[Rfam]
RNA sequence: UUCUUAUCCAGAGAGGCGGAGGGACUGGCCCUUUGAUGCCCGGCAACCAUCGAAUUUUUUUAAUAAUUCGAACGGUGCCAAUUCCUGCAGGAUGAAUGAUCCUGAAAGAUGAGAG
Numbered sequence: 001u002u003c004u005u006a007u008c009c010a011g012a013g014a015g016g017c018g019g020a021g022g023g024a025c026u027g028g029c030c031c032u033u034u035g036a037u038g039c040c041c042g043g044c045a046a047c048c049a050u051c052g053a054a055u056u057u058u059u060u061u062a063a064u065a066a067u068u069c070g071a072a073c074g075g076u077g078c079c080a081a082u083u084c085c086u087g088c089a090g091g092a093u094g095a096a097u098g099a100u101c102c103u104g105a106a107a108g109a110u111g112a113g114a115g
Base pairs, nucleotide, nucleotide: 001115002114003113004112005111006110007109008108013041015040016039017038021031022030023029025087027085028084042079043078044077045076047075048074050071051070052069053068054067055066056065083107088104089103090102091101092100093099

SAM riboswitch aptamer (S box leader): a 115-nucleotide RNA sequence from Thalassobacillus cyri. A search with the family's covariance model found it, with a score of 98 bits. The source organism's lineage runs through Bacteria, Bacillati, Caryophanales, Bacillaceae and Thalassobacillus. From the family's description: The SAM riboswitch is found upstream of a number of genes which code for proteins involved in methionine or cysteine biosynthesis in Gram-positive bacteria.